[Rfam]
RNA sequence: AUGUAUUUUCGGCAUAGUCGUUGAAAAGCGAUGACGCAAAGCUAUAGGGGCUAAGGUGAGAAUAAUCACUAUGCCAGCCAGUUGCAAAC
Numbered sequence: 001a002u003g004u005a006u007u008u009u010c011g012g013c014a015u016a017g018u019c020g021u022u023g024a025a026a027a028g029c030g031a032u033g034a035c036g037c038a039a040a041g042c043u044a045u046a047g048g049g050g051c052u053a054a055g056g057u058g059a060g061a062a063u064a065a066u067c068a069c070u071a072u073g074c075c076a077g078c079c080a081g082u083u084g085c086a087a088a089c
Stems, first nucleotide, its partner, number of pairs: 012037002017032006040083004047079002049075003056069004
The record is an 89-nucleotide RNA from Aminipila terrae, which matches "c-di-GMP-I riboswitch aptamer" in Rfam. Gene Ontology term of the family: cyclic-di-GMP binding. It scores 69 bits against the family's covariance model.